[Rfam]
RNA sequence: CGCGCUUAGCGGUAACGCCCGGCGUGAUGAGACAGAAGUCAACAGACGGCAUAGUAGCCAAACGCCCACUGUAAUGGGUGGGACAGGGUGAAGGCA
Numbered sequence: 001c002g003c004g005c006u007u008a009g010c011g012g013u014a015a016c017g018c019c020c021g022g023c024g025u026g027a028u029g030a031g032a033c034a035g036a037a038g039u040c041a042a043c044a045g046a047c048g049g050c051a052u053a054g055u056a057g058c059c060a061a062a063c064g065c066c067c068a069c070u071g072u073a074a075u076g077g078g079u080g081g082g083a084c085a086g087g088g089u090g091a092a093g094g095c096a
Stems, first nucleotide, its partner, number of pairs: 001026002004023003009018003038047003049095002057089003067080001

Rfam assigns this 96-nucleotide RNA from Thiorhodococcus minor to the family "Group II catalytic intron D1-D4-1". Rfam's curators write: Group II introns are found in rRNA, tRNA and mRNA of organelles in fungi, plants and protists, and also in mRNA in bacteria. Pairs were carried over by alignment from the consensus structure. A search with the family's covariance model found it, with a score of 49 bits.